[Rfam]
RNA: pemK RNA
RNA sequence: AUAAUGAUACUUCUGUUCGUGGCCGGCGACGAAAUAGGCGGUGGUGAGAUUCCAAUGA
Number, nucleotide and partner (000 for none) at each position: 001a000002u000003a000004a000005u000006g000007a000008u000009a000010c000011u000012u055013c022014u021015g020016u000017u000018c000019g000020u015021g014022g013023c041024c040025g039026g000027c037028g000029a035030c000031g000032a000033a000034a000035u029036a000037g027038g000039c025040g024041g023042u054043g053044g052045u000046g000047a000048g000049a000050u000051u000052c044053c043054a042055a012056u000057g000058a000